[Rfam]
RNA: Betaproteobacteria toxic small RNA
Organism: Cupriavidus sp. YR651
RNA sequence: UGUCUCCUCCACCCUCCUCCUUUGGUGGAUUCAAACCCAAGUCCAACCGACUUGGGUUUUUUUUC
Numbered sequence: 001u002g003u004c005u006c007c008u009c010c011a012c013c014c015u016c017c018u019c020c021u022u023u024g025g026u027g028g029a030u031u032c033a034a035a036c037c038c039a040a041g042u043c044c045a046a047c048c049g050a051c052u053u054g055g056g057u058u059u060u061u062u063u064u065c
Stems, first nucleotide, its partner, number of pairs: 008029006034058008